[Rfam]
RNA sequence: UUGCACAGUGAACACACAAGUGUGCUUUAUAGUUCUCUUGGCCUUGACUCUGUGCUAGAGUCUGUUCUUUUCCUCUGCAUUGAAAGGAGUAUUGUCCUUUUAAAUGUAUUCAGAAAAUCAGUGCAUCA
Numbered sequence: 001u002u003g004c005a006c007a008g009u010g011a012a013c014a015c016a017c018a019a020g021u022g023u024g025c026u027u028u029a030u031a032g033u034u035c036u037c038u039u040g041g042c043c044u045u046g047a048c049u050c051u052g053u054g055c056u057a058g059a060g061u062c063u064g065u066u067c068u069u070u071u072c073c074u075c076u077g078c079a080u081u082g083a084a085a086g087g088a089g090u091a092u093u094g095u096c097c098u099u100u101u102a103a104a105u106g107u108a109u110u111c112a113g114a115a116a117a118u119c120a121g122u123g124c125a126u127c128a
Base pairs, nucleotide, nucleotide: 003055004054005053006052007051008050010049013046014045017040018039019038020037022035024033025032026031057068058067059066060065074114075113076112077111078106079105080104081103082101083100084099085098086097087096088095
Source information
Small nucleolar RNA SNORA22: a 128-nucleotide sequence from Nannospalax galili. NCBI's taxonomy places the organism under Eukaryota, Deuterostomia, Mammalia, Muroidea, Nannospalax. Rfam's curators write: ACA22 is a member of the H/ACA class of snoRNA that guide the sites of modification of uridines to pseudouridines. The family's consensus secondary structure was predicted with RNAfold. It is annotated as an H/ACA-box small nucleolar RNA. Gene Ontology terms of the family: RNA processing and nucleolus.